[Rfam]
RNA sequence: AUAAUGAUACUCCUGCCCAGCCACAGUCCGAGCGUGAUAAAACCGUCGCAGGCAAUGGGGGCAGCUCGGAUGAAUUCGGAGGGGUGAGAUUCCCGUGG
Numbered sequence: 001a002u003a004a005u006g007a008u009a010c011u012c013c014u015g016c017c018c019a020g021c022c023a024c025a026g027u028c029c030g031a032g033c034g035u036g037a038u039a040a041a042a043c044c045g046u047c048g049c050a051g052g053c054a055a056u057g058g059g060g061g062c063a064g065c066u067c068g069g070a071u072g073a074a075u076u077c078g079g080a081g082g083g084g085u086g087a088g089a090u091u092c093c094c095g096u097g098g
Stems, first nucleotide, its partner, number of pairs: 012095001013064006065081003069077002082094003
pemK RNA: a 98-nucleotide RNA sequence.